[Rfam]
RNA: Purine riboswitch aptamer
RNA sequence: UAUAAUACUUUUAAAACGGCUCGUAUAUCAUCGAUAAUAUGGAUCGAAAGUUUCUACCUGCUAACCGUAAAUUUGCAGACUACGAGGGAUUUGACUUAAUUG
Numbered sequence: 001u002a003u004a005a006u007a008c009u010u011u012u013a014a015a016a017c018g019g020c021u022c023g024u025a026u027a028u029c030a031u032c033g034a035u036a037a038u039a040u041g042g043a044u045c046g047a048a049a050g051u052u053u054c055u056a057c058c059u060g061c062u063a064a065c066c067g068u069a070a071a072u073u074u075g076c077a078g079a080c081u082a083c084g085a086g087g088g089a090u091u092u093g094a095c096u097u098a099a100u101u102g
Stems, first nucleotide, its partner, number of pairs: 020086006031047005058078004063073002